Rfam assigns this 100-nucleotide sequence from Methanohalobium evestigatum to the family "Pyrrolysine insertion sequence 1". Pairs were carried over by alignment from the consensus structure, which was predicted with WAR. It is annotated as a cis-regulatory element. Rfam's curators put it in the seed alignment.
RNA sequence: UAGGGACCCGAGACCUCACUGUCUGCUCCAGGUAACAUCUCUGCUGAUGCUGUCGGCGGACUUAACCCUGCAGACAGCCAUGAGGUCUCACAGCUUAAUG
Numbered sequence: 001u002a003g004g005g006a007c008c009c010g011a012g013a014c015c016u017c018a019c020u021g022u023c024u025g026c027u028c029c030a031g032g033u034a035a036c037a038u039c040u041c042u043g044c045u046g047a048u049g050c051u052g053u054c055g056g057c058g059g060a061c062u063u064a065a066c067c068c069u070g071c072a073g074a075c076a077g078c079c080a081u082g083a084g085g086u087c088u089c090a091c092a093g094c095u096u097a098a099u100g
Base pairs, nucleotide, nucleotide: 010089011088012087013086014085015084016083017082040060041059042058043057044056045055046054